[Rfam]
RNA sequence: GGUAGUAGCAGCAAAGCGGGGUGAGAAUCCCCGCCGCCGGAGGGGCCAGGGUUCCUCGGCAAUGUUCGUCAGCCGAGGGUAAGUCGGCCCUAAGGCCGGCGGUAACACCGACCGGCCGAAAGGGAAACGGGUUAAUAUUCCCGUACCGCGGGGGUACGCCCGGCAACGGGAAGCCCGGCGGCCGACGCCUCGGGGUAGGCCGGGCGGGGCUGUCGCCCCGUCCAACCGGUGAAGGCCGGGGAGUCCCGUAAUGGGGAGAACCGGCCGAAGCCGGGAAGGGCCGCCCGUUAUGGGCGGUCCGGCCGAUCCCCGGGGCCCGUGAAAAGGCCGCCGGGAAGGAUCCCCCGCGACCGUACCGAGAACCGACACAGGUGCCCCUGGGUGAGAAGCCUAAGGCGCGG
Numbered sequence: 001g002g003u004a005g006u007a008g009c010a011g012c013a014a015a016g017c018g019g020g021g022u023g024a025g026a027a028u029c030c031c032c033g034c035c036g037c038c039g040g041a042g043g044g045g046c047c048a049g050g051g052u053u054c055c056u057c058g059g060c061a062a063u064g065u066u067c068g069u070c071a072g073c074c075g076a077g078g079g080u081a082a083g084u085c086g087g088c089c090c091u092a093a094g095g096c097c098g099g100c101g102g103u104a105a106c107a108c109c110g111a112c113c114g115g116c117c118g119a120a121a122g123g124g125a126a127a128c129g130g131g132u133u134a135a136u137a138u139u140c141c142c143g144u145a146c147c148g149c150g151g152g153g154g155u156a157c158g159c160c161c162g163g164c165a166a167c168g169g170g171a172a173g174c175c176c177g178g179c180g181g182c183c184g185a186c187g188c189c190u191c192g193g194g195g196u197a198g199g200c201c202g203g204g205c206g207g208g209g210c211u212g213u214c215g216c217c218c219c220g221u222c223c224a225a226c227c228g229g230u231g232a233a234g235g236c237c238g239g240g241g242a243g244u245c246c247c248g249u250a251a252u253g254g255g256g257a258g259a260a261c262c263g264g265c266c267g268a269a270g271c272c273g274g275g276a277a278g279g280g281c282c283g284c285c286c287g288u289u290a291u292g293g294g295c296g297g298u299c300c301g302g303c304c305g306a307u308c309c310c311c312g313g314g315g316c317c318c319g320u321g322a323a324a325a326g327g328c329c330g331c332c333g334g335g336a337a338g339g340a341u342c343c344c345c346c347g348c349g350a351c352c353g354u355a356c357c358g359a360g361a362a363c364c365g366a367c368a369c370a371g372g373u374g375c376c377c378c379u380g381g382g383u384g385a386g387a388a389g390c391c392u393a394a395g396g397c398g399c400g401g
Stems, first nucleotide, its partner, number of pairs: 016034006035398004043377004049357002054078006063071002085353003089123002094117006100110003127144005147349008181328003187316009198304005203222006226274004235265005245255003286292001363372002379393004
Dot-bracket structure: ...............((((((.......))))))((((....((((..((...((((((...((.....)).))))))......(((.((...(((((((((.....))).))))))....))...(((((........)))))..((((((((..........................(((...(((((((((..(((((((((((........))))))...((((.....(((((.....(((.....))).....))))).....))))...........(.....).......)))))...))))))))).........))).............)))))))).)))..)).....((......)).)))).((((.......)))).))))...
Shown here is a 401-nucleotide part of an RNA from Methanopyrus kandleri, a member of the family "Archaeal large subunit ribosomal RNA". The source organism's lineage runs through Archaea, Methanobacteriota, Methanopyri, Methanopyrales and Methanopyrus kandleri. Gene Ontology terms of the family: ribosome and structural constituent of ribosome. Pairs were carried over by alignment from the consensus structure, which is taken from published work.